[Rfam]
RNA sequence: GAAGCAGGUGAUGAUAAAAAAGACAGGGACAUCAGAACUCCUUUUGGAGUGAAGAUGACUAGUCUAAUGGGAAUCUCUCUGAUGCUUA
Numbered sequence: 001g002a003a004g005c006a007g008g009u010g011a012u013g014a015u016a017a018a019a020a021a022g023a024c025a026g027g028g029a030c031a032u033c034a035g036a037a038c039u040c041c042u043u044u045u046g047g048a049g050u051g052a053a054g055a056u057g058a059c060u061a062g063u064c065u066a067a068u069g070g071g072a073a074u075c076u077c078u079c080u081g082a083u084g085c086u087u088a
Base pairs, nucleotide, nucleotide: 002087003086004085005084006083

Description:
Small nucleolar RNA R44/J54/Z268 family: an 88-nucleotide RNA sequence from Salvia splendens. Rfam 15.1 lists 1,168 matches to the family in 228 species. The organism belongs to core Calosphace, within Eukaryota. Clan: SNORD74 clan. The base pairs follow the family's consensus structure, which was predicted with PFOLD.